[Rfam]
RNA sequence: CGAUUGGAUAAGUGUGAGCAAUCACGCGAAACUCGCCUGUAAUCCCGGCAUCACCGCAUCGCGGUGUGGCGACUCUCUCAAAUGCUGCAUCGCAGCAGCAUCUUC
Numbered sequence: 001c002g003a004u005u006g007g008a009u010a011a012g013u014g015u016g017a018g019c020a021a022u023c024a025c026g027c028g029a030a031a032c033u034c035g036c037c038u039g040u041a042a043u044c045c046c047g048g049c050a051u052c053a054c055c056g057c058a059u060c061g062c063g064g065u066g067u068g069g070c071g072a073c074u075c076u077c078u079c080a081a082a083u084g085c086u087g088c089a090u091c092g093c094a095g096c097a098g099c100a101u102c103u104u105c
Stems, first nucleotide, its partner, number of pairs: 012027006033072005052066006083100006
The record is a 105-nucleotide RNA sequence, which matches "DUF3577 RNA" in Rfam. Rfam classes the family as a cis-regulatory element. Pairs were carried over by alignment from the consensus structure, which is taken from published work.